[Rfam]
The family of this 428-nucleotide sequence from Brucella anthropi is "Bacterial RNase P class A".

RNA sequence: UCAGUCGGUCGGGCAGCCGCGCUUGUCAUAUGCCGAAAGGCGGCAGGUGAGGAAAGUCCGGGCUCCAUGGAAACACGAUGCCGGGUAACGCCCGGCGGGGGUGACCCCAGGGAAAGUGCCACAGAAAGCAGACCGCCCCGUCUUCCGUACCGUUGCGCAACGAAACGGCAGGGAUGACGGGGUAAGGGUGAAAGGGUGGGGUAAGAGCCCACCGCGUCUGCAGCAAUGCAGACGGCACGGUAAACCCCAUCGGGAGCAAAACCGAAUAGGGACGGCGCGCUGGCUCGCAAGGGCCGGCAAUCGGUUUCCGGAUCAGCCGUCCGGGUGGGUUGCACGAGGCGGGUGGCGACAUCCGUCCCAGAUGAAUGGCUGCCACGUCGGGCGAAAGCCCGGCCAUACAGAACCCGGCUUACAGACCGACUGACAAU
Numbered sequence: 001u002c003a004g005u006c007g008g009u010c011g012g013g014c015a016g017c018c019g020c021g022c023u024u025g026u027c028a029u030a031u032g033c034c035g036a037a038a039g040g041c042g043g044c045a046g047g048u049g050a051g052g053a054a055a056g057u058c059c060g061g062g063c064u065c066c067a068u069g070g071a072a073a074c075a076c077g078a079u080g081c082c083g084g085g086u087a088a089c090g091c092c093c094g095g096c097g098g099g100g101g102u103g104a105c106c107c108c109a110g111g112g113a114a115a116g117u118g119c120c121a122c123a124g125a126a127a128g129c130a131g132a133c134c135g136c137c138c139c140g141u142c143u144u145c146c147g148u149a150c151c152g153u154u155g156c157g158c159a160a161c162g163a164a165a166c167g168g169c170a171g172g173g174a175u176g177a178c179g180g181g182g183u184a185a186g187g188g189u190g191a192a193a194g195g196g197u198g199g200g201g202u203a204a205g206a207g208c209c210c211a212c213c214g215c216g217u218c219u220g221c222a223g224c225a226a227u228g229c230a231g232a233c234g235g236c237a238c239g240g241u242a243a244a245c246c247c248c249a250u251c252g253g254g255a256g257c258a259a260a261a262c263c264g265a266a267u268a269g270g271g272a273c274g275g276c277g278c279g280c281u282g283g284c285u286c287g288c289a290a291g292g293g294c295c296g297g298c299a300a301u302c303g304g305u306u307u308c309c310g311g312a313u314c315a316g317c318c319g320u321c322c323g324g325g326u327g328g329g330u331u332g333c334a335c336g337a338g339g340c341g342g343g344u345g346g347c348g349a350c351a352u353c354c355g356u357c358c359c360a361g362a363u364g365a366a367u368g369g370c371u372g373c374c375a376c377g378u379c380g381g382g383c384g385a386a387a388g389c390c391c392g393g394c395c396a397u398a399c400a401g402a403a404c405c406c407g408g409c410u411u412a413c414a415g416a417c418c419g420a421c422u423g424a425c426a427a428u
Stems, first nucleotide, its partner, number of pairs: 001424010011413001012374007020049008054411003058408005063256004072307002076252005081095005096110001097108004111247002116245002118241003133187002135183008195213006214236001215234008260331004270322006299313001301311003338357008

Rfam's curators write: Ribonuclease P (RNase P) is a ubiquitous endoribonuclease, found in archaea, bacteria and eukarya as well as chloroplasts and mitochondria. Its best characterised activity is the generation of mature 5'-ends of tRNAs by cleaving the 5'-leader elements of precursor-tRNAs. Cellular RNase Ps are ribonucleoproteins. RNA from bacterial RNase Ps retains its catalytic activity in the absence of the protein subunit, i.e. it is a ribozyme. Isolated eukaryotic and archaeal RNase P RNA has not been shown to retain its catalytic function, but is still essential for the catalytic activity of the holoenzyme. Although the archaeal and eukaryotic holoenzyme s have a much greater protein content than the bacterial ones, the RNA cores from all the three lineages are homologous -- helices corresponding to P1, P2, P3, P4, and P10/11 are common to all cellular RNase P RNAs. Yet, there is considerable sequence variation, particularly among the eukaryotic RNAs. Identified in Yersinia as Ysr151/RnpB. Rfam's curators put it in the seed alignment. The organism belongs to Brucella anthropi, within Bacteria. Pairs were carried over by alignment from the consensus structure, which is taken from published work. The family's RNA type in Rfam is ribozyme.